Rfam assigns this 78-nucleotide RNA sequence from Parasulfuritortus cantonensis to the family "c-di-GMP-I riboswitch aptamer".
RNA sequence: CGUGAUCAAAGGCAUACCCGCGGCGACGCGGUGACGCAAAGCUUCCGGUCUGGUACGCCAGAUAGCGGGGUUGCCACC
Numbered sequence: 001c002g003u004g005a006u007c008a009a010a011g012g013c014a015u016a017c018c019c020g021c022g023g024c025g026a027c028g029c030g031g032u033g034a035c036g037c038a039a040a041g042c043u044u045c046c047g048g049u050c051u052g053g054u055a056c057g058c059c060a061g062a063u064a065g066c067g068g069g070g071u072u073g074c075c076a077c078c
Stems, first nucleotide, its partner, number of pairs: 012037002018031005040072004045068003048063006
It scores 54 bits against the family's covariance model.